Rfam assigns this 77-nucleotide RNA sequence from Branchiostoma lanceolatum to the family "mir-4872 microRNA precursor family". NCBI's taxonomy places the organism under Eukaryota, Bilateria, Amphioxiformes, Branchiostomatidae, Branchiostoma. Pairs were carried over by alignment from the consensus structure, which was predicted with RNAalifold.
RNA sequence: CCAUAUAUAGUGCCGGGAUAAUCAAGAUUCUGAGUUCACUCAGCUUCAGAGUCUUAUUGCCCUGGAUCUUUAUUUGG
Numbered sequence: 001c002c003a004u005a006u007a008u009a010g011u012g013c014c015g016g017g018a019u020a021a022u023c024a025a026g027a028u029u030c031u032g033a034g035u036u037c038a039c040u041c042a043g044c045u046u047c048a049g050a051g052u053c054u055u056a057u058u059g060c061c062c063u064g065g066a067u068c069u070u071u072a073u074u075u076g077g
Stems, first nucleotide, its partner, number of pairs: 001077002005073003009069002013065005019059004024055010034044002